RNA sequence: GUGCAAAUGAUGGAAAACUCAAUGUUUGGAAAAAGGAUGACACCAACAAAGGAACCACUGAUGCAG
Numbered sequence: 001g002u003g004c005a006a007a008u009g010a011u012g013g014a015a016a017a018c019u020c021a022a023u024g025u026u027u028g029g030a031a032a033a034a035g036g037a038u039g040a041c042a043c044c045a046a047c048a049a050a051g052g053a054a055c056c057a058c059u060g061a062u063g064c065a066g
Base pairs, nucleotide, nucleotide: 002065003064004063005062
Shown here is a 66-nucleotide RNA from Mesocricetus auratus, a member of the family "Small nucleolar RNA SNORD42".
snoRNA U42 is found in intron 3 of the ribosomal protein L23a (RPL23a) gene in humans and is also present in mice.
It is annotated as a C/D-box small nucleolar RNA.
NCBI's taxonomy places the organism under Eukaryota, Opisthokonta, Chordata, Euteleostomi, Mesocricetus.